[Rfam]
RNA sequence: CGCACUGGACGACCAGUGUCUUGCACAUUCGGGGACGGCCCC
Numbered sequence: 001c002g003c004a005c006u007g008g009a010c011g012a013c014c015a016g017u018g019u020c021u022u023g024c025a026c027a028u029u030c031g032g033g034g035a036c037g038g039c040c041c042c
Stems, first nucleotide, its partner, number of pairs: 002019007031042004
Dot-bracket structure: .(((((((....)))))))...........((((....))))
This 42-nucleotide RNA sequence from Aminobacter sp. MSH1 belongs to the Rfam family "Guanidine-II riboswitch aptamer (mini-ykkC)".
NCBI's taxonomy places the organism under Bacteria, Pseudomonadati, Pseudomonadota, Phyllobacteriaceae, Aminobacter.
About the family: Simpler in structure and has fewer highly conserved nucleotide positions than the ykkC-yxkD leader.
The match comes from Rfam's covariance-model search (32 bits).